The family of this 178-nucleotide RNA sequence from Arabidopsis lyrata is "MIR4208 microRNA precursor family". Its family is annotated with RISC complex and miRNA-mediated post-transcriptional gene silencing in the Gene Ontology. NCBI's taxonomy places the organism under Eukaryota, eudicotyledons, Gunneridae, malvids, Arabidopsis. Rfam 15.1 lists 7 matches to the family in 2 species. The family's consensus secondary structure was predicted with RNAalifold.
[Rfam]
Nucleotides: 178
Base pairs, nucleotide, nucleotide: 003175004174005173006172007171008170009169010168011167014163015162016161017160018159019158020157021156022155023154024153025152026151027150029148030147031146032145033144034143035142036141037140038139039138040137041136042135043134044133045132046131050130051129052128053127054126055125056124057123058122059121060120
Number, partner (000 for none) and nucleotide at each position: 001000u002000g003175u004174g005173g006172u007171g008170a009169u010168a011167u012000u013000a014163a015162a016161a017160a018159u019158a020157u021156a022155c023154a024153u025152u026151u027150u028000a029148u030147u031146u032145u033144u034143g035142g036141c037140a038139a039138u040137c041136a042135u043134u044133u045132u046131u047000c048000u049000u050130u051129u052128a053127u054126a055125a056124a057123u058122u059121c060120a061000a062000a063000a064000a065000a066000g067000a068000a069000a070000a071000u072000g073000u074000a075000u076000a077000u078000u079000u080000u081000g082000u083000u084000a085000u086000a087000u088000a089000u090000a091000a092000c093000c094000a095000a096000c097000g098000u099000u100000u101000g102000a103000g104000u105000u106000u107000u108000a109000a110000a111000a112000a113000a114000g115000a116000u117000a118000a119000a120060u121059g122058a123057a124056u125055u126054u127053a128052u129051a130050a131046g132045a133044a134043a135042a136041u137040g138039a139038u140037u141036g142035c143034c144033a145032a146031a147030a148029a149000g150027a151026a152025a153024a154023u155022g156021u157020a158019u159018a160017u161016u162015u163014u164000g165000u166000u167011a168010u169009a170008u171007u172006a173005c174004c175003a176000a177000a178000a